[Rfam]
RNA sequence: ACAAUGAUACUUCCGUCCUGAACGCGUCACAGCAUUGGACGGCGCACCCACAGGCAUGGGACGAGGUGAAAUUCCUAUGG
Numbered sequence: 001a002c003a004a005u006g007a008u009a010c011u012u013c014c015g016u017c018c019u020g021a022a023c024g025c026g027u028c029a030c031a032g033c034a035u036u037g038g039a040c041g042g043c044g045c046a047c048c049c050a051c052a053g054g055c056a057u058g059g060g061a062c063g064a065g066g067u068g069a070a071a072u073u074c075c076u077a078u079g080g
Stems, first nucleotide, its partner, number of pairs: 012077001013042006043063002047059002064076003
The family of this 80-nucleotide RNA is "pemK RNA".
By type it is a cis-regulatory element.